[Rfam]
Nucleotides: 182
Stems, first nucleotide, its partner, number of pairs: 006042001010038005016033003069083004075169005084108008093100002111134003116129004137163002140160005146155003
Number, partner (000 for none) and nucleotide at each position: 001000u002000c003000c004000a005000a006042c007000c008000g009000g010038c011037g012036c013035g014034c015000a016033c017032u018031a019000a020000u021000c022000c023000a024000c025000a026000c027000u028000u029000u030000c031018u032017g033016g034014g035013c036012g037011c038010g039000g040000a041000c042006g043000g044000u045000c046000a047000a048000a049000a050000a051000a052000g053000g054000a055000g056000g057000u058000a059000u060000a061000a062000a063000c064000c065000a066000u067000g068000u069083c070082c071081g072080c073000g074000g075169g076168a077167c078166u079165c080072g081071c082070g083069g084108u085107g086106c087105g088104g089103c090102a091101u092000u093100g094099u095000g096000g097000a098000g099094a100093c101091a102090u103089g104088u105087c106086g107085u108084a109000a110000u111134g112133c113132g114000u115000u116129c117128g118127c119126c120000a121000a122000g123000c124000c125000c126119g127118g128117c129116g130000u131000u132113c133112g134111c135000g136000a137163g138162a139000a140160u141159g142158u143157g144156c145000g146155c147154g148153c149000g150000g151000a152000g153148g154147c155146g156144g157143c158142a159141c160140a161000g162138u163137c164000a165079g166078g167077g168076u169075c170000a171000g172000u173000c174000a175000g176000u177000a178000u179000g180000g181000c182000a